Rfam assigns this 96-nucleotide sequence from Ureibacillus sinduriensis to the family "Guanidine-I riboswitch aptamer". Its family is annotated with regulation of gene expression in the Gene Ontology. It scores 78 bits against the family's covariance model. On this family, see Barrick et al., Proc Natl Acad Sci U S A 2004: "New RNA motifs suggest an expanded scope for riboswitches in bacterial genetic control". The pairing is the family consensus, mapped onto this sequence.
RNA sequence: AGAAACGUUUUCUAGGGUUCCGUAUCGUGCUGCGAUGGUCUGGUCCGAGAGAAAACUACGCACAGCGUGACACGGAAGGCCAAAAUCCUGGGAGAU
Numbered sequence: 001a002g003a004a005a006c007g008u009u010u011u012c013u014a015g016g017g018u019u020c021c022g023u024a025u026c027g028u029g030c031u032g033c034g035a036u037g038g039u040c041u042g043g044u045c046c047g048a049g050a051g052a053a054a055a056c057u058a059c060g061c062a063c064a065g066c067g068u069g070a071c072a073c074g075g076a077a078g079g080c081c082a083a084a085a086u087c088c089u090g091g092g093a094g095a096u
Stems, first nucleotide, its partner, number of pairs: 007056006015046002020043002022040001023037006057069005071091001073094001077089003